Cyanobacteria heterocyst sRNA: a 56-nucleotide sequence from Mojavia pulchra. It scores 71 bits against the family's covariance model. Rfam classes the family as a small RNA. NCBI's taxonomy places the organism under Bacteria, Bacillati, Nostocales, Mojavia, Mojavia pulchra. For this family Rfam cites "Identification of Conserved and Potentially Regulatory Small RNAs in Heterocystous Cyanobacteria" (Brenes-Alvarez et al., Front Microbiol, 2016).
RNA sequence: GGGAUGUUGUUAUGCACUGGAUUUAUCUAAAGGUCUGGUGAUGAGCCAAACCUUAU
Numbered sequence: 001g002g003g004a005u006g007u008u009g010u011u012a013u014g015c016a017c018u019g020g021a022u023u024u025a026u027c028u029a030a031a032g033g034u035c036u037g038g039u040g041a042u043g044a045g046c047c048a049a050a051c052c053u054u055a056u
Stems, first nucleotide, its partner, number of pairs: 002018002005016003030054005036048004